[Rfam]
RNA sequence: CAGUGAAAUUCGUUCCUACGGAACGAGUGAAAUAUCUUCGAUGUGAAAUAUUUGCCUCGCAAAUGUGAGAUAUGCCUGCGGCAUAUGAAGGAACG
Numbered sequence: 001c002a003g004u005g006a007a008a009u010u011c012g013u014u015c016c017u018a019c020g021g022a023a024c025g026a027g028u029g030a031a032a033u034a035u036c037u038u039c040g041a042u043g044u045g046a047a048a049u050a051u052u053u054g055c056c057u058c059g060c061a062a063a064u065g066u067g068a069g070a071u072a073u074g075c076c077u078g079c080g081g082c083a084u085a086u087g088a089a090g091g092a093a094c095g
Base pairs, nucleotide, nucleotide: 008028009027010026011025012024013023014022015021048066049065050064051063052062053061070086071085072084073083074082075081076080
Shown here is a 95-nucleotide RNA sequence, a member of the family "Gut-1 RNA". Pairs were carried over by alignment from the consensus structure, which is taken from published work. It is one of the family's seed sequences. The family's RNA type in Rfam is small RNA. The family has 38 seed sequences and 51 matches in Rfam 15.1.